[Rfam]
RNA sequence: GGCGGGUCUCCCCGCAUUGCCGAGUCGUGAACCUGGUCAGGUCCGGAAGGAAGCAGCCACAACGAUGCAGGCAAGUGCCGGGGGUCGGGCUCGCCACC
Numbered sequence: 001g002g003c004g005g006g007u008c009u010c011c012c013c014g015c016a017u018u019g020c021c022g023a024g025u026c027g028u029g030a031a032c033c034u035g036g037u038c039a040g041g042u043c044c045g046g047a048a049g050g051a052a053g054c055a056g057c058c059a060c061a062a063c064g065a066u067g068c069a070g071g072c073a074a075g076u077g078c079c080g081g082g083g084g085u086c087g088g089g090c091u092c093g094c095c096a097c098c
Stems, first nucleotide, its partner, number of pairs: 004092005009084006015075001017074005024066005034059004042051003
The record is a 98-nucleotide RNA sequence from Chitinimonas arctica, which matches "Bacterial small signal recognition particle RNA" in Rfam. NCBI's taxonomy places the organism under Bacteria, Pseudomonadati, Neisseriales, Chitinibacteraceae, Chitinimonas. For this family Rfam cites "SRPDB: Signal Recognition Particle Database" (Rosenblad et al., Nucleic Acids Res, 2003). Rfam links the family to the GO terms signal recognition particle, plasma membrane targeting and SRP-dependent cotranslational protein targeting to membrane, signal sequence recognition. The match comes from Rfam's covariance-model search (77 bits).